[Rfam]
RNA sequence: GCAGCGAAUGCCACGGGUACUACAUGGUGUCGCGGGUUCGAGCCCCGCCAGCCGCAAGGCUGUAGCUCAGUCGGUAGAGCGAAUGUGCCCGUUCCCUUGUCGCUGCCCG
Numbered sequence: 001g002c003a004g005c006g007a008a009u010g011c012c013a014c015g016g017g018u019a020c021u022a023c024a025u026g027g028u029g030u031c032g033c034g035g036g037u038u039c040g041a042g043c044c045c046c047g048c049c050a051g052c053c054g055c056a057a058g059g060c061u062g063u064a065g066c067u068c069a070g071u072c073g074g075u076a077g078a079g080c081g082a083a084u085g086u087g088c089c090c091g092u093u094c095c096c097u098u099g100u101c102g103c104u105g106c107c108c109g
Base pairs, nucleotide, nucleotide: 002105003104004103005102006101007100013092014091015090016089017088018087019086023081032048033047034046035045036044039074049062050061051060052059053058065080066079067078068077
RNA: Y RNA-like
Organism: Pseudomonas sp. MRSN 12121